RNA sequence: UGGAUCGCUGAUGACUUCUGGUGGCGUAUGAGUCUUGUACGAUGAAUACGUCUGGAACUCUGAGGUCCAU
Numbered sequence: 001u002g003g004a005u006c007g008c009u010g011a012u013g014a015c016u017u018c019u020g021g022u023g024g025c026g027u028a029u030g031a032g033u034c035u036u037g038u039a040c041g042a043u044g045a046a047u048a049c050g051u052c053u054g055g056a057a058c059u060c061u062g063a064g065g066u067c068c069a070u
Base pairs, nucleotide, nucleotide: 002068003067004066005065006064
The record is a 70-nucleotide sequence from Otolemur garnettii, which matches "Small nucleolar RNA SNORD113/SNORD114 family" in Rfam. Rfam's curators write: The imprinted human domain at 14q32 contains two clusters of tandemly repeated small nucleolar RNAs named 14q(I) and 14q(II) snoRNAs. These two clusters are named SNORD113 and SNORD114 respectively in the HGNC approved gene symbol nomenclature. The snoRNAs found in both clusters are clearly related and are represented here by a single family. A search with the family's covariance model found it, with a score of 82 bits. Lineage of the source: Eukaryota > Opisthokonta > Deuterostomia > Galagidae > Otolemur. Rfam 15.1 lists 5,721 matches to the family in 142 species.